Notes:
Shown here is a 118-nucleotide RNA from Arthrobacter sp. PAMC 25486, a member of the family "TPP riboswitch aptamer (THI element)".
[Rfam]
RNA sequence: CAAACACGACAGGGGAGCGUCCACCCGACCUGGGUAGCGGCGCUGAGAGUGCGGUUCGCCGCAGACCCUCGAACCUGCUCCGGUUAGUACCGGCGAAGGGAGUCGAGUUCUCUUCGGC
Dot-bracket structure: ......((((((((..(((((.................)))))......(((((....)))))..))))....(((...((((......))))...)))..)))).............
Numbered sequence: 001c002a003a004a005c006a007c008g009a010c011a012g013g014g015g016a017g018c019g020u021c022c023a024c025c026c027g028a029c030c031u032g033g034g035u036a037g038c039g040g041c042g043c044u045g046a047g048a049g050u051g052c053g054g055u056u057c058g059c060c061g062c063a064g065a066c067c068c069u070c071g072a073a074c075c076u077g078c079u080c081c082g083g084u085u086a087g088u089a090c091c092g093g094c095g096a097a098g099g100g101a102g103u104c105g106a107g108u109u110c111u112c113u114u115c116g117g118c
Stems, first nucleotide, its partner, number of pairs: 007105004011069004017043005050063005074099003080093004
Rfam describes the family as follows. Vitamin B(1) in its active form thiamin pyrophosphate (TPP) is an essential coenzyme that is synthesised by coupling of pyrimidine and thiazole moieties in bacteria. Lineage of the source: Bacteria > Bacillati > Actinomycetota > Actinomycetes > Arthrobacter.